[Rfam]
RNA sequence: UUUUAUGGACAAUCAAGACCAUAAGAAUACCUGGAAUAAUUUCACAAAGUUUGUGUUGUGGG
Numbered sequence: 001u002u003u004u005a006u007g008g009a010c011a012a013u014c015a016a017g018a019c020c021a022u023a024a025g026a027a028u029a030c031c032u033g034g035a036a037u038a039a040u041u042u043c044a045c046a047a048a049g050u051u052u053g054u055g056u057u058g059u060g061g062g
Stems, first nucleotide, its partner, number of pairs: 001026008030062004034057002036054004
pntA sRNA: a 62-nucleotide RNA sequence from Candidatus Pelagibacter communis. The literature on the family includes a 2009 paper in BMC Genomics by Meyer et al., "Identification of candidate structured RNAs in the marine organism 'Candidatus Pelagibacter ubique'". The base pairs follow the family's consensus structure, which is taken from published work. The source organism's lineage runs through Bacteria, Pseudomonadati, Pseudomonadota, Candidatus Pelagibacteraceae and Candidatus Pelagibacter communis.